Shown here is a 111-nucleotide sequence from Brugia malayi, a member of the family "SL1 RNA". The base pairs follow the family's consensus structure, which is taken from published work. Clan: SL clan. From the family's description: This family represents the SL1 RNA. SL1 is commonly located in the spacer region between 5S-rRNA genes where it is involved in trans-splicing. Trans-splicing is a form of RNA processing. The acquisition of a spliced leader from a SL RNA is a intra-molecular reaction which precisely joins exons derived from separately transcribed RNAs. The match comes from Rfam's covariance-model search (97 bits).
Nucleotides: 111
Base pairs, nucleotide, nucleotide: 003032004031005030006029007028008027009026010025011024012023035069036068037067038066040063041062042061084108085107086106087105089103090102
Number, partner (000 for none) and nucleotide at each position: 001000g002000g003032u004031u005030u006029a007028a008027u009026u010025a011024c012023c013000c014000c015000a016000a017000g018000u019000u020000u021000g022000a023012g024011g025010u026009a027008a028007u029006u030005g031004a032003a033000u034000g035069u036068u037067u038066c039000g040063g041062c042061c043000c044000a045000g046000a047000g048000u049000u050000u051000a052000g053000g054000c055000u056000a057000c058000u059000g060000u061042g062041g063040c064000u065000u066038g067037a068036a069035g070000u071000a072000a073000a074000a075000u076000u077000u078000u079000g080000g081000a082000a083000c084108g085107u086106c087105c088000c089103u090102u091000g092000c093000a094000u095000g096000a097000u098000g099000u100000a101000a102090a103089a104000u105087g106086g107085a108084u109000c110000a111000c